[Rfam]
RNA sequence: GGGUUACUCCUUGGCGCUUGCGCGCUGUUUCGAUAAAGAUUCGCACCUGUAUCAAAACGGGUAACCCCACCAUUUGCAAGGUGAGACUGUCAGAUCAAGUCUGAACUUCUACACUUAAUUCCUUCUAGGUCUACCCAUCAACUUCGCGGGGAUUCAAUCAAUCAUCACGUUCUAGAUCGGCCUGCUUCCAGCCGAGGUCGUGU
Numbered sequence: 001g002g003g004u005u006a007c008u009c010c011u012u013g014g015c016g017c018u019u020g021c022g023c024g025c026u027g028u029u030u031c032g033a034u035a036a037a038g039a040u041u042c043g044c045a046c047c048u049g050u051a052u053c054a055a056a057a058c059g060g061g062u063a064a065c066c067c068c069a070c071c072a073u074u075u076g077c078a079a080g081g082u083g084a085g086a087c088u089g090u091c092a093g094a095u096c097a098a099g100u101c102u103g104a105a106c107u108u109c110u111a112c113a114c115u116u117a118a119u120u121c122c123u124u125c126u127a128g129g130u131c132u133a134c135c136c137a138u139c140a141a142c143u144u145c146g147c148g149g150g151g152a153u154u155c156a157a158u159c160a161a162u163c164a165u166c167a168c169g170u171u172c173u174a175g176a177u178c179g180g181c182c183u184g185c186u187u188c189c190a191g192c193c194g195a196g197g198u199c200g201u202g203u
Stems, first nucleotide, its partner, number of pairs: 001067007009060002014025004027058004032053004037048002069203002074161003080155002084153001089106002091103005108150003113144001172191002175188002178184001
Rfam assigns this 203-nucleotide sequence from Chitinimonas sp. BJB300 to the family "Proteobacterial sRNA psRNA2". The organism belongs to Chitinimonas, within Bacteria. The match comes from Rfam's covariance-model search (128 bits). The base pairs follow the family's consensus structure. A reference for the family is Gvakharia et al. (2010), "Computational prediction and transcriptional analysis of sRNAs in Nitrosomonas europaea", FEMS Microbiol Lett. By type it is a small RNA.